This 134-nucleotide sequence from Aspergillus rambellii belongs to the Rfam family "A. fumigatus sRNA Afu_254". By type it is a small RNA. The match comes from Rfam's covariance-model search (82 bits). Rfam 15.1 lists 185 matches to the family in 142 species. The base pairs follow the family's consensus structure, which was predicted with WAR.
RNA sequence: AUCCAAAGCCUCUCUACCUCUUCCCUUUUCAAAAAACCACUCUCCACCGCAAAUCAAGAUGUCUCCCUGCUCUUGCAACUGCUGUUCUGGCGACUGCAGCUCCUGCUCCUGCGGCUCCUGCAGCGUAAGUCCCU
Numbered sequence: 001a002u003c004c005a006a007a008g009c010c011u012c013u014c015u016a017c018c019u020c021u022u023c024c025c026u027u028u029u030c031a032a033a034a035a036a037c038c039a040c041u042c043u044c045c046a047c048c049g050c051a052a053a054u055c056a057a058g059a060u061g062u063c064u065c066c067c068u069g070c071u072c073u074u075g076c077a078a079c080u081g082c083u084g085u086u087c088u089g090g091c092g093a094c095u096g097c098a099g100c101u102c103c104u105g106c107u108c109c110u111g112c113g114g115c116u117c118c119u120g121c122a123g124c125g126u127a128a129g130u131c132c133c134u
Stems, first nucleotide, its partner, number of pairs: 068092004075085003096121003105112002